RNA: SAM (S-adenosyl methionine) riboswitch aptamer
Organism: Gordonia rhizosphera
RNA sequence: CUUCAUGAGUUGCCGUCCCCAAGCUCCGGCUGGGCGGCACGCCAACCCCACGUUCACGGGUGGCCCGGAUGACGAAGCGGCCCGCACCGACCGGUGCCGGGCAAGAGCGCCUC
Numbered sequence: 001c002u003u004c005a006u007g008a009g010u011u012g013c014c015g016u017c018c019c020c021a022a023g024c025u026c027c028g029g030c031u032g033g034g035c036g037g038c039a040c041g042c043c044a045a046c047c048c049c050a051c052g053u054u055c056a057c058g059g060g061u062g063g064c065c066c067g068g069a070u071g072a073c074g075a076a077g078c079g080g081c082c083c084g085c086a087c088c089g090a091c092c093g094g095u096g097c098c099g100g101g102c103a104a105g106a107g108c109g110c111c112u113c
Base pairs, nucleotide, nucleotide: 001077002076003075004074009040012038013037014036015035016034017033022031023030041064042063043062046060047059048058080102081101082100083099084097085096086095087094088093